[Rfam]
RNA sequence: UGUGCGGGCCGGGCCCCUCUGGCGAUCCUUCGGAUCGCGAUGUCGGACCGCAUCG
Dot-bracket structure: .....((.((((.........((((((.....))))))....)))).))......
A member of the RNA family "terC RNA" from Allosphingosinicella deserti, 55 nucleotides long. It is annotated as a cis-regulatory element.